The record is a 92-nucleotide sequence from Roseateles depolymerans, which matches "Selenocysteine transfer RNA" in Rfam. A search with the family's covariance model found it, with a score of 72 bits. NCBI's taxonomy places the organism under Bacteria, Pseudomonadati, Pseudomonadota, Sphaerotilaceae, Roseateles.
RNA sequence: GGAGGGGGAACGAUCCCGGUGGAUCGGCCAGGCUUCAAACCUGGUGGGUGGCGCCAUGCGUUGCCAGGUGGGUUCGACCCCCGCCCCCCUCC
Numbered sequence: 001g002g003a004g005g006g007g008g009a010a011c012g013a014u015c016c017c018g019g020u021g022g023a024u025c026g027g028c029c030a031g032g033c034u035u036c037a038a039a040c041c042u043g044g045u046g047g048g049u050g051g052c053g054c055c056a057u058g059c060g061u062u063g064c065c066a067g068g069u070g071g072g073u074u075c076g077a078c079c080c081c082c083g084c085c086c087c088c089c090u091c092c
Stems, first nucleotide, its partner, number of pairs: 001092008011026006027045006047065005069083004